RNA sequence: UCCGGUCCUCGGUAGUGAUCUUCAGAACCCGCCCCCGGUCCAGCGCGAACAGGGGCGUGCGCUCUGCGGGUCUCGAUCGAAGACCGGC
Numbered sequence: 001u002c003c004g005g006u007c008c009u010c011g012g013u014a015g016u017g018a019u020c021u022u023c024a025g026a027a028c029c030c031g032c033c034c035c036c037g038g039u040c041c042a043g044c045g046c047g048a049a050c051a052g053g054g055g056c057g058u059g060c061g062c063u064c065u066g067c068g069g070g071u072c073u074c075g076a077u078c079g080a081a082g083a084c085c086g087g088c
Stems, first nucleotide, its partner, number of pairs: 002087006009080005017072005023066004